[Rfam]
RNA sequence: AAUCUGAUAGUAUGGUAGAAAGAAAAAAAUCUAUUUCUUUCUACUAUACUAUCUAUUAUUGUAGUGUAUAAAGUUUUACUC
Numbered sequence: 001a002a003u004c005u006g007a008u009a010g011u012a013u014g015g016u017a018g019a020a021a022g023a024a025a026a027a028a029a030u031c032u033a034u035u036u037c038u039u040u041c042u043a044c045u046a047u048a049c050u051a052u053c054u055a056u057u058a059u060u061g062u063a064g065u066g067u068a069u070a071a072a073g074u075u076u077u078a079c080u081c
Stems, first nucleotide, its partner, number of pairs: 006053020

A member of the RNA family "Plastid-psbM 3UTR RNA" from Digitaria exilis, 81 nucleotides long.
From the family's description: Plastid psbM is a non-coding RNA (ncRNA) recognised in plastids. It was found in the three prime untranslated region (3UTR) of psbM gene, its 3UTR location suggests a role in transcript maturation.
It is annotated as a cis-regulatory element.
It scores 71 bits against the family's covariance model.
Taxonomically the source falls in Digitaria (Eukaryota, Euphyllophyta, Panicoideae, Paniceae).